[Rfam]
Purine riboswitch aptamer: a 102-nucleotide sequence from Clostridium argentinense. The family's consensus secondary structure is taken from published work. For this family Rfam cites "Structure of a natural guanine-responsive riboswitch complexed with the metabolite hypoxanthine" (Batey et al., Nature, 2004). It scores 81 bits against the family's covariance model.
RNA sequence: CUUUAUAUCAUAAAAUUUUCUCGUAUAUCAUCGGAGAUAAGGUCCGAAAGUUUCUACCUGCUAGCCGAAAAUUAGCAGACUACGGGGUUAAGUUGUUUUAGU
Numbered sequence: 001c002u003u004u005a006u007a008u009c010a011u012a013a014a015a016u017u018u019u020c021u022c023g024u025a026u027a028u029c030a031u032c033g034g035a036g037a038u039a040a041g042g043u044c045c046g047a048a049a050g051u052u053u054c055u056a057c058c059u060g061c062u063a064g065c066c067g068a069a070a071a072u073u074a075g076c077a078g079a080c081u082a083c084g085g086g087g088u089u090a091a092g093u094u095g096u097u098u099u100a101g102u
Stems, first nucleotide, its partner, number of pairs: 019087007031047005058078007